RNA: Small nucleolar RNA snoR97
RNA sequence: CUAUAUUUGUUGGUUCAGUGUCUUAAGAACUCAAAUAUUAUUGUGUUGUCAUCAACUUCUUCUCUUGUAUGAACCACGAGUUAGAAGUUAAAUAAUUGCACUAAAUCG
Numbered sequence: 001c002u003a004u005a006u007u008u009g010u011u012g013g014u015u016c017a018g019u020g021u022c023u024u025a026a027g028a029a030c031u032c033a034a035a036u037a038u039u040a041u042u043g044u045g046u047u048g049u050c051a052u053c054a055a056c057u058u059c060u061u062c063u064c065u066u067g068u069a070u071g072a073a074c075c076a077c078g079a080g081u082u083a084g085a086a087g088u089u090a091a092a093u094a095a096u097u098g099c100a101c102u103a104a105a106u107c108g
Stems, first nucleotide, its partner, number of pairs: 043101004048096001054089006062080003